[Rfam]
RNA: Short Intergenic Abundant RNA
RNA sequence: UUGACUCCGCUGCGCAUUCGUCUUAACGUGAAGGGAUAAGGGAAAGGGAGGAGUAUCCUCCCCCUGGUGUCUUAGUAAGCUGCGAAACUUAUGACUAAGAGUAUCACCAGUAUGAUGACCAACUUCAUCAUAUGCCCUUUCCUUCUA
Number, nucleotide and partner (000 for none) at each position: 001u000002u000003g000004a000005c000006u000007c000008c000009g000010c000011u000012g000013c000014g000015c000016a000017u000018u000019c000020g000021u000022c000023u000024u000025a000026a000027c000028g000029u000030g000031a000032a143033g142034g141035g140036a000037u000038a139039a138040g137041g136042g135043a133044a000045a000046g062047g061048g060049a000050g000051g000052a000053g000054u000055a000056u000057c000058c000059u000060c048061c047062c046063c000064c110065u109066g108067g107068u000069g000070u000071c000072u000073u000074a000075g000076u000077a000078a000079g000080c000081u000082g000083c000084g000085a000086a000087a000088c000089u000090u000091a000092u000093g000094a000095c000096u000097a000098a000099g000100a000101g000102u000103a000104u000105c000106a000107c067108c066109a065110g064111u132112a131113u130114g129115a128116u127117g126118a000119c000120c000121a000122a000123c000124u000125u000126c117127a116128u115129c114130a113131u112132a111133u043134g000135c042136c041137c040138u039139u038140u035141c034142c033143u032144u000145c000146u000147a000